The family of this 295-nucleotide RNA sequence from Gloeobacter violaceus is "Cyanobacteria transfer-messenger RNA".
The base pairs follow the family's consensus structure, which is taken from published work.
Rfam's curators put it in the seed alignment.
The literature on the family includes a 1996 paper in RNA by Williams and Bartel, "Phylogenetic analysis of tmRNA secondary structure".
Rfam's curators write: Bacterial tmRNA, also known as 10Sa RNA or SsrA, is named for its dual tRNA and mRNA-like properties. Its role is to liberate the mRNA from a stalled ribosome. To accomplish this part of the tmRNA is used as a reading frame that ends in a translation stop signal.
Rfam classes the family as a non-coding RNA gene.
Its Rfam clan is "tRNA clan".
The organism belongs to Gloeobacter violaceus, within Bacteria.
RNA sequence: AAGCUGCCGUUGGUUUGUCUUUCCCCAACGUACGUGAAAAGGGAGACUAGGGUGCGUGAUCGGCUGUUCUGGACAGGGGUUCGAUUCCCCUCAUCUCCACCAACUCGGGGAUGUACUGGCUUCGACAGGGCAAUUAGAGCGUAACUGAAGCCUGCUCGGUUAGAGCAAAAAACCAAGUGCUACUAACAACGUAGUUCCCUUCGCUCGCGCCCGCGCUACUGUCGCGGCCUGAGUAAGGCGGGGUUGGUAGAUAACCUUGUAAACCAAAACUACCCAAAAGGCCCCUUCGGGGGCC
Numbered sequence: 001a002a003g004c005u006g007c008c009g010u011u012g013g014u015u016u017g018u019c020u021u022u023c024c025c026c027a028a029c030g031u032a033c034g035u036g037a038a039a040a041g042g043g044a045g046a047c048u049a050g051g052g053u054g055c056g057u058g059a060u061c062g063g064c065u066g067u068u069c070u071g072g073a074c075a076g077g078g079g080u081u082c083g084a085u086u087c088c089c090c091u092c093a094u095c096u097c098c099a100c101c102a103a104c105u106c107g108g109g110g111a112u113g114u115a116c117u118g119g120c121u122u123c124g125a126c127a128g129g130g131c132a133a134u135u136a137g138a139g140c141g142u143a144a145c146u147g148a149a150g151c152c153u154g155c156u157c158g159g160u161u162a163g164a165g166c167a168a169a170a171a172a173c174c175a176a177g178u179g180c181u182a183c184u185a186a187c188a189a190c191g192u193a194g195u196u197c198c199c200u201u202c203g204c205u206c207g208c209g210c211c212c213g214c215g216c217u218a219c220u221g222u223c224g225c226g227g228c229c230u231g232a233g234u235a236a237g238g239c240g241g242g243g244u245u246g247g248u249a250g251a252u253a254a255c256c257u258u259g260u261a262a263a264c265c266a267a268a269a270c271u272a273c274c275c276a277a278a279a280g281g282c283c284c285c286u287u288c289g290g291g292g293g294c295c
Base pairs, nucleotide, nucleotide: 017047018046019045020044021043022042023041050146051145054142055141056140057139061137065132066131067130068129069128070127071126075091076090077089078088079087092113093112094111095110096109097108098107153167154166155165156164157163205233209229212226213225214224215223237265238264239259240258241257242256243255244254245253246252280295281294282293283292284291285290